A member of the RNA family "U2 spliceosomal RNA" from Triplophysa tibetana, 171 nucleotides long. It scores 113 bits against the family's covariance model. Lineage of the source: Eukaryota > Eumetazoa > Bilateria > Otophysi > Triplophysa. Clan: U2 clan. Rfam describes the family as follows. U2 is a small nuclear RNA (snRNA) component of the spliceosome (involved in pre-mRNA splicing). The base pairs follow the family's consensus structure, which is taken from published work.
[Rfam]
RNA sequence: AAAAUUUCGAAAGAAAAAUCUGUUCUUAUCAGUUUAAUAUCUGAUACGUCCCCUAUCUGGGGACCAUAUAUUAAAUGGAUUUUUGAAGCGCGGAGCUGGAAGCGGGGCUUCCUCCGCCCACUCCACGCAUCGACCUGGUAUUGCAGUGUCUCCAGGAACGGUGCACUCCCC
Dot-bracket structure: ..........................((((((........)))))).((((((.....))))))...........................((((..((....((((....)))).))..))))..((((((.(((((.............)))))..)))))).......
Numbered sequence: 001a002a003a004a005u006u007u008c009g010a011a012a013g014a015a016a017a018a019u020c021u022g023u024u025c026u027u028a029u030c031a032g033u034u035u036a037a038u039a040u041c042u043g044a045u046a047c048g049u050c051c052c053c054u055a056u057c058u059g060g061g062g063a064c065c066a067u068a069u070a071u072u073a074a075a076u077g078g079a080u081u082u083u084u085g086a087a088g089c090g091c092g093g094a095g096c097u098g099g100a101a102g103c104g105g106g107g108c109u110u111c112c113u114c115c116g117c118c119c120a121c122u123c124c125a126c127g128c129a130u131c132g133a134c135c136u137g138g139u140a141u142u143g144c145a146g147u148g149u150c151u152c153c154a155g156g157a158a159c160g161g162u163g164c165a166c167u168c169c170c171c
Stems, first nucleotide, its partner, number of pairs: 027046006048064006092124004098118002104115004127164006134156005